[Rfam]
RNA sequence: CCGACUGAGGGGCGCUGCAGCGGAACUACUUCUGUCACGCUCAGUUGGGUUUUUCAUUUUGACAAGGGCGCCCAUUCGAC
Numbered sequence: 001c002c003g004a005c006u007g008a009g010g011g012g013c014g015c016u017g018c019a020g021c022g023g024a025a026c027u028a029c030u031u032c033u034g035u036c037a038c039g040c041u042c043a044g045u046u047g048g049g050u051u052u053u054u055c056a057u058u059u060u061g062a063c064a065a066g067g068g069c070g071c072c073c074a075u076u077c078g079a080c
Stems, first nucleotide, its partner, number of pairs: 002047007021034005

A member of the RNA family "SAH (S-adenosyl-L-homocysteine) riboswitch aptamer" from Pleionea mediterranea, 80 nucleotides long. The match comes from Rfam's covariance-model search (48 bits). Rfam links the family to the GO terms regulation of gene expression and S-adenosylhomocysteine metabolic process. The organism belongs to Pleionea, within Bacteria.